[Rfam]
RNA sequence: GAUCAGGAUGAAAAUAACCAAAUAUGAGCAUCAGAAGAUCUUUCAGUCUACUUGAUGCAUGAGCUCUACAGUUUUAAGA
Numbered sequence: 001g002a003u004c005a006g007g008a009u010g011a012a013a014a015u016a017a018c019c020a021a022a023u024a025u026g027a028g029c030a031u032c033a034g035a036a037g038a039u040c041u042u043u044c045a046g047u048c049u050a051c052u053u054g055a056u057g058c059a060u061g062a063g064c065u066c067u068a069c070a071g072u073u074u075u076a077a078g079a
Base pairs, nucleotide, nucleotide: 028058029057030056031055032054036049037048038047039046
RNA: Small nucleolar RNA U2-19
Organism: Nomascus leucogenys